[Rfam]
RNA sequence: CAGGCAUGCUGGAGCCCCGCAGCGGCGCCCGGACCCCACGAACGUCUCUUCAAAGAGAUGCCGGGGUCCGAACACCGUCAUUUCAUCCGGGGCUUAU
Numbered sequence: 001c002a003g004g005c006a007u008g009c010u011g012g013a014g015c016c017c018c019g020c021a022g023c024g025g026c027g028c029c030c031g032g033a034c035c036c037c038a039c040g041a042a043c044g045u046c047u048c049u050u051c052a053a054a055g056a057g058a059u060g061c062c063g064g065g066g067u068c069c070g071a072a073c074a075c076c077g078u079c080a081u082u083u084c085a086u087c088c089g090g091g092g093c094u095u096a097u
Stems, first nucleotide, its partner, number of pairs: 012095008023077003030070004034065003
Notes:
Shown here is a 97-nucleotide RNA sequence from Rhizobium sp. Root1212, a member of the family "ybhL leader". This family is a putative regulatory RNA structure that is found upstream of an uncharacterized membrane protein in alpha-proteobacteria. By type it is a cis-regulatory leader. On this family, see Corbino et al., Genome Biol 2005: "Evidence for a second class of S-adenosylmethionine riboswitches and other regulatory RNA motifs in alpha-proteobacteria". The source organism's lineage runs through Bacteria, Alphaproteobacteria, Hyphomicrobiales, Rhizobiaceae and Rhizobium. Its family is annotated with regulation of gene expression in the Gene Ontology.